[Rfam]
RNA sequence: GACCUUAUGCAAGUUUUGUAAAGUGUCACCUUGUUCCGAAGGGACAUUUUACUCCGCUUACAGAUCA
Numbered sequence: 001g002a003c004c005u006u007a008u009g010c011a012a013g014u015u016u017u018g019u020a021a022a023g024u025g026u027c028a029c030c031u032u033g034u035u036c037c038g039a040a041g042g043g044a045c046a047u048u049u050u051a052c053u054c055c056g057c058u059u060a061c062a063g064a065u066c067a
Stems, first nucleotide, its partner, number of pairs: 001066002008062002011059004018052010029042004
The family of this 67-nucleotide sequence from Bombyx mori is "mir-2822 microRNA precursor family". The family's consensus secondary structure was predicted with RNAalifold. It scores 85 bits against the family's covariance model.